[Rfam]
Shown here is a 166-nucleotide sequence from Ananas comosus, a member of the family "small nucleolar RNA snoR143". The family's consensus secondary structure was predicted with RNAalifold. Taxonomically the source falls in Ananas (Eukaryota, Streptophytina, Spermatophyta, Magnoliopsida). A search with the family's covariance model found it, with a score of 100 bits. It is annotated as an H/ACA-box small nucleolar RNA. On this family, see Chen and Wu, Nucleic Acids Res 2009: "Mining small RNA sequencing data: a new approach to identify small nucleolar RNAs in Arabidopsis".

RNA sequence: UUCCAAUAAAUAAAAAAAAUUCACCUGCUUAUUAUGGUGGUGUGAUUUUUAUCGUUGGUGCAAAAAAAAAAAGCUGUCUUUGACAGCAGCGGCCAGACAACCGUAGGGAUGGAUCCACAGGUGAAUGGGUUGAAUUCCAUUUGUCUACUGAUUCCAUCUCACAUUA
Numbered sequence: 001u002u003c004c005a006a007u008a009a010a011u012a013a014a015a016a017a018a019a020u021u022c023a024c025c026u027g028c029u030u031a032u033u034a035u036g037g038u039g040g041u042g043u044g045a046u047u048u049u050u051a052u053c054g055u056u057g058g059u060g061c062a063a064a065a066a067a068a069a070a071a072a073g074c075u076g077u078c079u080u081u082g083a084c085a086g087c088a089g090c091g092g093c094c095a096g097a098c099a100a101c102c103g104u105a106g107g108g109a110u111g112g113a114u115c116c117a118c119a120g121g122u123g124a125a126u127g128g129g130u131u132g133a134a135u136u137c138c139a140u141u142u143g144u145c146u147a148c149u150g151a152u153u154c155c156a157u158c159u160c161a162c163a164u165u166a
Base pairs, nucleotide, nucleotide: 002062004060005059010055011054013052015050016049017048018047019046021045022044023043025042028039106160107159108158109157110156111155112154113153124142125141126139127138128137